[Rfam]
RNA sequence: GACGAGACAAAAGCGCCUGGACUAAGCGUUGGACGGAAGAACGCUUAGUUGACGAGGAGGAGGUUUAUCGAGGUUUUCGGCGGAUGCCUCCCGGCUGGAGCGAUGACAGCCGCAAGUCCUCUCUUAAAACAAAGGGGUGACCCUUUGCACAAAGGGGAGGAUGUCAUCGC
Numbered sequence: 001g002a003c004g005a006g007a008c009a010a011a012a013g014c015g016c017c018u019g020g021a022c023u024a025a026g027c028g029u030u031g032g033a034c035g036g037a038a039g040a041a042c043g044c045u046u047a048g049u050u051g052a053c054g055a056g057g058a059g060g061a062g063g064u065u066u067a068u069c070g071a072g073g074u075u076u077u078c079g080g081c082g083g084a085u086g087c088c089u090c091c092c093g094g095c096u097g098g099a100g101c102g103a104u105g106a107c108a109g110c111c112g113c114a115a116g117u118c119c120u121c122u123c124u125u126a127a128a129a130c131a132a133a134g135g136g137g138u139g140a141c142c143c144u145u146u147g148c149a150c151a152a153a154g155g156g157g158a159g160g161a162u163g164u165c166a167u168c169g170c
Base pairs, nucleotide, nucleotide: 020050021049022048023047024046025045026044027043029041059091060090061089062088063087068080069079070078071077092112093111094110095109096108097107118160119159120158121157122156123155130147131146132145133144134143135142136141
A member of the RNA family "glmS glucosamine-6-phosphate activated ribozyme aptamer" from Geobacillus kaustophilus, 170 nucleotides long. Rfam's curators put it in the seed alignment.